[Rfam]
Rfam assigns this 401-nucleotide sequence from Croceibacterium mercuriale to the family "Bacterial RNase P class A". Ribonuclease P (RNase P) is a ubiquitous endoribonuclease, found in archaea, bacteria and eukarya as well as chloroplasts and mitochondria.
RNA sequence: CCAGGGGGCUGGGCAGCCGCGGCGCUGAUGCGUCGAGGAAAGUCCGGGCUCCACGAAACAAGGGUGGCGGGUAACGCCCGCCCGCGCCGGGCAACCGGCGUGAGGGACAGUGCCACAGAGAGCAGACCGCCGAUGGGGUGACCGCCUCGUGCGGGCAUCAACAGGCAAGGGUGAAAGGGUGCGGCAAGAGCGCACCGGGGUUCCGGCAACGGCGCCCGCGACGGCAAACCCCACCCGGAGCAAGACCGAAUAGGGGUCUCGCACCUGCUUGCAGGCAGGGGUGUUUCGCCCCGAGAGACCCGGGUUGGUUGCUAGAGCGCGCCGGGCAACCGGCCGCCCAGAUGAAUGGCUGCCCCUCGCGUCUGCGAGGACAGAACCCGGCUUACAGGCCCCCUGGCACC
Numbered sequence: 001c002c003a004g005g006g007g008g009c010u011g012g013g014c015a016g017c018c019g020c021g022g023c024g025c026u027g028a029u030g031c032g033u034c035g036a037g038g039a040a041a042g043u044c045c046g047g048g049c050u051c052c053a054c055g056a057a058a059c060a061a062g063g064g065u066g067g068c069g070g071g072u073a074a075c076g077c078c079c080g081c082c083c084g085c086g087c088c089g090g091g092c093a094a095c096c097g098g099c100g101u102g103a104g105g106g107a108c109a110g111u112g113c114c115a116c117a118g119a120g121a122g123c124a125g126a127c128c129g130c131c132g133a134u135g136g137g138g139u140g141a142c143c144g145c146c147u148c149g150u151g152c153g154g155g156c157a158u159c160a161a162c163a164g165g166c167a168a169g170g171g172u173g174a175a176a177g178g179g180u181g182c183g184g185c186a187a188g189a190g191c192g193c194a195c196c197g198g199g200g201u202u203c204c205g206g207c208a209a210c211g212g213c214g215c216c217c218g219c220g221a222c223g224g225c226a227a228a229c230c231c232c233a234c235c236c237g238g239a240g241c242a243a244g245a246c247c248g249a250a251u252a253g254g255g256g257u258c259u260c261g262c263a264c265c266u267g268c269u270u271g272c273a274g275g276c277a278g279g280g281g282u283g284u285u286u287c288g289c290c291c292c293g294a295g296a297g298a299c300c301c302g303g304g305u306u307g308g309u310u311g312c313u314a315g316a317g318c319g320c321g322c323c324g325g326g327c328a329a330c331c332g333g334c335c336g337c338c339c340a341g342a343u344g345a346a347u348g349g350c351u352g353c354c355c356c357u358c359g360c361g362u363c364u365g366c367g368a369g370g371a372c373a374g375a376a377c378c379c380g381g382c383u384u385a386c387a388g389g390c391c392c393c394c395u396g397g398c399a400c401c
Stems, first nucleotide, its partner, number of pairs: 001397010011386001012354007020035006040384003044381005049240004058286001060284001062236005067081005082104001083102008105231002110229002112225003127170002129166003134161001136159002178196006197219001198217004203212003244310004254301006278292005317337003321334005
By type it is a ribozyme.